[Rfam]
RNA sequence: AAAUUCCCGCCCCGGAAAGGGGAAUGAGCCGCCCCACCGGGAAUCGAGUCUUGGGCUUCUGAAGGCAACGACAGGAGUUAAGCGUAGACAGAGCGACGAGCAGGCCGUAACGCAAGUGAAGCUGUGGAGCCUCGUUAAGGUACAAAUCCGCAGGCCGACGGGAUCGUAGUGCCCGGAAGGCUACAGUAGGCCACCGCAAUGGGCGAUGGGGGCUGGAGACUGCGGCGGGGUCAGAGGGCA
Number, nucleotide and partner (000 for none) at each position: 001a000002a000003a000004u000005u000006c000007c000008c000009g000010c000011c000012c040013c039014g038015g037016a000017a000018a000019g035020g034021g033022g032023a000024a000025u000026g000027a000028g000029c203030c000031g000032c022033c021034c020035c019036a000037c015038c014039g013040g012041g000042a000043a000044u092045c091046g000047a000048g089049u088050c087051u086052u084053g083054g079055g078056c077057u076058u075059c074060u073061g072062a000063a000064g069065g000066c000067a000068a000069c064070g000071a000072c061073a060074g059075g058076a057077g056078u055079u054080a000081a000082g000083c053084g052085u000086a051087g050088a049089c048090a000091g045092a044093g000094c000095g000096a000097c000098g000099a000100g000101c000102a000103g000104g000105c000106c000107g000108u000109a000110a000111c000112g000113c000114a000115a000116g000117u000118g000119a000120a000121g000122c000123u000124g000125u000126g000127g232128a000129g231130c230131c229132u228133c227134g226135u000136u000137a000138a000139g000140g000141u000142a000143c000144a000145a000146a000147u000148c225149c224150g223151c222152a221153g220154g181155c180156c179157g000158a000159c175160g174161g173162g172163a000164u000165c000166g000167u000168a000169g000170u000171g000172c162173c161174c160175g159176g000177a000178a000179g156180g155181c154182u000183a000184c000185a000186g000187u216188a000189g214190g213191c212192c211193a000194c209195c208196g000197c000198a000199a000200u000201g000202g000203g029204c000205g000206a000207u000208g195209g194210g000211g192212g191213c190214u189215g000216g187217a000218g000219a000220c153221u152222g151223c150224g149225g148226c134227g133228g132229g131230g130231u129232c127233a000234g000235a000236g000237g000238g000239c000240a000

Rfam assigns this 240-nucleotide RNA from Paraburkholderia phytofirmans to the family "Group II catalytic intron D1-D4-6". From the family's description: Group II introns are found in rRNA, tRNA and mRNA of organelles in fungi, plants and protists, and also in mRNA in bacteria.